[Rfam]
RNA sequence: GGUUCGUGAGCAGCGCAUGGACUGCGGGACGCACAACCCGCAGUUGACGAGGCGGAGGUUCCCUGUCGCGCGACAGGGCUAACGCCGAUACUAUCGGCGGAACAUCGAGAGAUCAGCGGAUGCCUCCCAGGCGCGCCGCCGCCUGUAAGCGCUCCAGCAAAACCAUCCGGCGACGGGUGACACAAAUGGAGCGUAGCGAGCGC
Number, nucleotide and partner (000 for none) at each position: 001g000002g000003u000004u000005c000006g000007u000008g000009a000010g000011c000012a000013g000014c000015g000016c000017a000018u000019g000020g045021a044022c043023u042024g041025c040026g039027g038028g037029a000030c000031g000032c000033a000034c000035a000036a000037c028038c027039c026040g025041c024042a023043g022044u021045u020046g000047a000048c000049g000050a000051g000052g000053c000054g127055g126056a125057g124058g123059u000060u000061c000062c000063c116064u115065g114066u000067c000068g000069c000070g000071c000072g000073a000074c000075a000076g000077g000078g000079c000080u000081a000082a000083c000084g000085c000086c000087g000088a000089u000090a000091c000092u000093a000094u000095c000096g000097g000098c000099g000100g000101a000102a000103c000104a000105u000106c000107g000108a000109g000110a000111g000112a000113u000114c065115a064116g063117c000118g000119g000120a000121u000122g000123c058124c057125u056126c055127c054128c145129a144130g143131g142132c141133g140134c000135g000136c000137c000138g000139c000140c133141g132142c131143c130144u129145g128146u000147a000148a000149g194150c193151g192152c191153u190154c189155c188156a000157g000158c000159a000160a000161a000162a000163c000164c179165a178166u177167c176168c175169g174170g000171c000172g000173a000174c169175g168176g167177g166178u165179g164180a000181c000182a000183c000184a000185a000186a000187u000188g155189g154190a153191g152192c151193g150194u149195a000196g000197c000198g000199a000200g000201c000202g000203c000